[Rfam]
RNA: dfrA-dnaX RNA
RNA sequence: AUGCCUUGUGAUAAAGUUGUAUUAAUUUCACCAUAACAACUAUAAAAAGAUUAUCAAAAUGCAGUUAUGGUAUAAU
Number, nucleotide and partner (000 for none) at each position: 001a000002u000003g000004c000005c000006u000007u000008g000009u000010g000011a000012u000013a000014a000015a000016g000017u000018u000019g000020u000021a000022u000023u000024a000025a000026u000027u000028u000029c000030a071031c070032c069033a068034u067035a066036a065037c064038a000039a000040c000041u000042a000043u000044a000045a000046a000047a000048a000049g000050a000051u000052u000053a000054u000055c000056a000057a000058a000059a000060u000061g000062c000063a000064g037065u036066u035067a034068u033069g032070g031071u030072a000073u000074a000075a000076u000